[Rfam]
RNA sequence: GGCAAGGCUCGAAAGGAGUGAAGUCUCCCGAAGGAAAGAGGCGCGAGCCUCAAGUACGAGGGAGAUGGACCGGGGUCUUGCCUUUCGUCCUGAAACACGG
Numbered sequence: 001g002g003c004a005a006g007g008c009u010c011g012a013a014a015g016g017a018g019u020g021a022a023g024u025c026u027c028c029c030g031a032a033g034g035a036a037a038g039a040g041g042c043g044c045g046a047g048c049c050u051c052a053a054g055u056a057c058g059a060g061g062g063a064g065a066u067g068g069a070c071c072g073g074g075g076u077c078u079u080g081c082c083u084u085u086c087g088u089c090c091u092g093a094a095a096c097a098c099g100g
Base pairs, nucleotide, nucleotide: 001082002081003080004079005078006077007076008075009074010073015071016070023066024065025064026063027062028061029060033057038051039050040049041048042047085100086099087098088097
This 100-nucleotide part of an RNA from Saccharolobus islandicus belongs to the Rfam family "Archaeal large subunit ribosomal RNA". It is one of the family's seed sequences. Its Rfam clan is "LSU clan". The base pairs follow the family's consensus structure, which is taken from published work.